The family of this 115-nucleotide RNA sequence from Clostridium sp. N3C is "FMN riboswitch aptamer (RFN element)".
A search with the family's covariance model found it, with a score of 126 bits.
The base pairs follow the family's consensus structure, which is taken from published work.
NCBI's taxonomy places the organism under Bacteria, Bacillati, Bacillota, Eubacteriales, Clostridium.
RNA sequence: UAGUAUCUUCAGGGCAGGGUGUAAAUCCCGACCGGCGGUAAAGCCCGCGAGCCGUAAUGGUUGAUUCGGUGAAAUUCCGAAGCCGACAGUAUAGUCUGGAUGGAAGAAGAUAUGU
Numbered sequence: 001u002a003g004u005a006u007c008u009u010c011a012g013g014g015c016a017g018g019g020u021g022u023a024a025a026u027c028c029c030g031a032c033c034g035g036c037g038g039u040a041a042a043g044c045c046c047g048c049g050a051g052c053c054g055u056a057a058u059g060g061u062u063g064a065u066u067c068g069g070u071g072a073a074a075u076u077c078c079g080a081a082g083c084c085g086a087c088a089g090u091a092u093a094g095u096c097u098g099g100a101u102g103g104a105a106g107a108a109g110a111u112a113u114g115u
Stems, first nucleotide, its partner, number of pairs: 003113008017029003031095002033085002035048004043083002051061003065081005087098003